[Rfam]
This 117-nucleotide RNA sequence from Massilia psychrophila belongs to the Rfam family "ALIL pseudoknot".
The literature on the family includes a 2008 paper in J Biol Chem by Mazauric et al., "Apical loop-internal loop RNA pseudoknots: a new type of stimulator of -1 translational frameshifting in bacteria".
The base pairs follow the family's consensus structure, which is taken from published work.
It is annotated as a cis-regulatory element.
RNA sequence: CGCGUUUUUCGCCCAGGCGGAGCUCGACCGACGCUUCAAAUCGUGAGGGAUUUUAUUGACCAGAACCGCCAUGCUUACGGGGGCGAGUCGAUUUGCAAAGUUUUGCAGGUCGCCCCG
Dot-bracket structure: ...............(.(((.......))).).............................................(((((......((.(((((((....))))))).)))))))